[Rfam]
RNA sequence: UUUAUUGUUUCAGAUAUGAUUAUAUUCCAUACUGUACUCAAGUACAGUAUGGAAUAUAAUCAUAUCUGAAACAAUAAA
Numbered sequence: 001u002u003u004a005u006u007g008u009u010u011c012a013g014a015u016a017u018g019a020u021u022a023u024a025u026u027c028c029a030u031a032c033u034g035u036a037c038u039c040a041a042g043u044a045c046a047g048u049a050u051g052g053a054a055u056a057u058a059a060u061c062a063u064a065u066c067u068g069a070a071a072c073a074a075u076a077a078a
Base pairs, nucleotide, nucleotide: 007072008071009070010069011068012067013066014065015064016063017062018061019060020059021058022057023056024055025054027052028051029050030049031048